The family of this 102-nucleotide RNA sequence from Microcebus murinus is "Y RNA". Rfam's curators write: Y RNAs are components of the Ro ribonucleoprotein particle (Ro RNP), in association with Ro60 and La proteins. The Y RNAs and Ro60 and La proteins are well conserved, but the function of the Ro RNP is not known. In humans the RNA component can be one of four small RNAs -- hY1, hY3, hY4 and hY5. NCBI's taxonomy places the organism under Eukaryota, Deuterostomia, Dipnotetrapodomorpha, Theria, Microcebus.
[Rfam]
RNA sequence: AUUUGGUCCUAGUGCAGUGGUGUUUGCAAAUAAUUGAUCACAACCAGUUAUAGAUUCCUUUGUUCCUUCUCCAGUCCCACUGCUUCACUUGACCAGCCUAAA
Numbered sequence: 001a002u003u004u005g006g007u008c009c010u011a012g013u014g015c016a017g018u019g020g021u022g023u024u025u026g027c028a029a030a031u032a033a034u035u036g037a038u039c040a041c042a043a044c045c046a047g048u049u050a051u052a053g054a055u056u057c058c059u060u061u062g063u064u065c066c067u068u069c070u071c072c073a074g075u076c077c078c079a080c081u082g083c084u085u086c087a088c089u090u091g092a093c094c095a096g097c098c099u100a101a102a
Stems, first nucleotide, its partner, number of pairs: 003096006011089001014086001016081005022076001032064003036060002